[Rfam]
Nucleotides: 087
Base pairs, nucleotide, nucleotide: 004084005083006082012074013073014072015071016070017069020067021066022065023064024063025062026061029058030057031056032055033054037050038049039048040047041046
Number, partner (000 for none) and nucleotide at each position: 001000a002000g003000a004084g005083g006082c007000c008000c009000u010000c011000u012074g013073c014072g015071g016070u017069c018000g019000g020067g021066g022065u023064g024063g025062a026061a027000c028000u029058c030057u031056u032055g033054c034000c035000u036000c037050g038049u039048c040047a041046c042000c043000g044000c045000a046041g047040u048039g049038a050037c051000g052000a053000a054033g055032c056031a057030a058029g059000c060000a061026u062025u063024c064023c065022g066021c067020c068000a069017g070016g071015c072014c073013g074012c075000u076000c077000a078000c079000g080000c081000u082006g083005c084004c085000c086000g087000c
Shown here is an 87-nucleotide RNA sequence from Cnephaeus nilssonii, a member of the family "mir-9195 microRNA precursor family". The family's consensus secondary structure was predicted with RNAalifold. A search with the family's covariance model found it, with a score of 96 bits. Its family is annotated with miRNA-mediated post-transcriptional gene silencing and RISC complex in the Gene Ontology. Rfam 15.1 lists 438 matches to the family in 7 species.